[Rfam]
This 73-nucleotide sequence from Caenorhabditis japonica belongs to the Rfam family "mir-49 microRNA precursor family". The family has 4 seed sequences and 8 matches in Rfam 15.1. The base pairs follow the family's consensus structure, which was predicted with RNAalifold.
RNA sequence: UUCCAUCCGCAGUUUUUUUGUGCUGUGCUCCGAACCCGAGUGGUCGAAGCACCACGAGAAGCUGCAGAUGGGA
Numbered sequence: 001u002u003c004c005a006u007c008c009g010c011a012g013u014u015u016u017u018u019u020g021u022g023c024u025g026u027g028c029u030c031c032g033a034a035c036c037c038g039a040g041u042g043g044u045c046g047a048a049g050c051a052c053c054a055c056g057a058g059a060a061g062c063u064g065c066a067g068a069u070g071g072g073a
Stems, first nucleotide, its partner, number of pairs: 003071005009065010020055003025052005031046002035042001
Gene Ontology terms of the family: miRNA-mediated post-transcriptional gene silencing and RISC complex. The source organism's lineage runs through Eukaryota, Rhabditina, Rhabditoidea, Peloderinae and Caenorhabditis.